[Rfam]
RNA sequence: AUAACUAAUUCGCAAACCUGGGGAAACCCUGGGGCGCAAAGCUAUAGGGCCUGUAAAAUGGUAGCCAGUUGCCAAG
Numbered sequence: 001a002u003a004a005c006u007a008a009u010u011c012g013c014a015a016a017c018c019u020g021g022g023g024a025a026a027c028c029c030u031g032g033g034g035c036g037c038a039a040a041g042c043u044a045u046a047g048g049g050c051c052u053g054u055a056a057a058a059u060g061g062u063a064g065c066c067a068g069u070u071g072c073c074a075a076g
Base pairs, nucleotide, nucleotide: 012037013036017032018031020029021028022027040070041069042068043067047066048065049062050061051060
Dot-bracket structure: ...........((...((.(((....))).))...))..((((...(((((........)))..))))))......
The record is a 76-nucleotide RNA from Psychromonas ingrahamii, which matches "c-di-GMP-I riboswitch aptamer" in Rfam. The family's consensus secondary structure is taken from published work. Lineage of the source: Bacteria > Pseudomonadota > Alteromonadales > Psychromonas > Psychromonas ingrahamii. Rfam 15.1 lists 5,092 matches to the family in 1,772 species.